[Rfam]
The family of this 81-nucleotide RNA sequence from Bagarius yarrelli is "mir-181 microRNA precursor family".
The organism belongs to Bagarius, within Eukaryota.
On this family, see Lagos-Quintana et al., RNA 2003: "New microRNAs from mouse and human".
The base pairs follow the family's consensus structure, which was predicted with PFOLD.
Its family is annotated with miRNA-mediated post-transcriptional gene silencing and RISC complex in the Gene Ontology.
RNA sequence: GAGUCGCGGCGAACAUUCAACGCUGUCGGUGAGUUUUCAAACGAGGAAAAACCAUCGAGCGUUGAGUGUACCCCGCAUCUC
Number, nucleotide and partner (000 for none) at each position: 001g081002a080003g079004u000005c000006g076007c075008g074009g000010c000011g000012a000013a000014c068015a067016u066017u065018c064019a063020a062021c061022g060023c000024u000025g000026u058027c057028g056029g055030u054031g053032a000033g052034u051035u050036u049037u000038c000039a000040a000041a000042c000043g000044a000045g000046g000047a000048a000049a036050a035051a034052c033053c031054a030055u029056c028057g027058a026059g000060c022061g021062u020063u019064g018065a017066g016067u015068g014069u000070a000071c000072c000073c000074c008075g007076c006077a000078u000079c003080u002081c001